Shown here is a 70-nucleotide RNA sequence from Drosophila busckii, a member of the family "mir-3 microRNA precursor family". A search with the family's covariance model found it, with a score of 74 bits. On this family, see Aravin et al., Dev Cell 2003: "The small RNA profile during Drosophila melanogaster development".
[Rfam]
RNA sequence: CUUUUGGGAUGCAUUUUGUGCAGUCAUGUCAACAACUAAACUCAUCACUGGGCAAAGUGUGUCUCAAAAU
Numbered sequence: 001c002u003u004u005u006g007g008g009a010u011g012c013a014u015u016u017u018g019u020g021c022a023g024u025c026a027u028g029u030c031a032a033c034a035a036c037u038a039a040a041c042u043c044a045u046c047a048c049u050g051g052g053c054a055a056a057g058u059g060u061g062u063c064u065c066a067a068a069a070u
Base pairs, nucleotide, nucleotide: 005066006065007064008063009062010061011060012059013058014057017054018053019052021050022049023048024047
The organism belongs to Dorsilopha, within Eukaryota.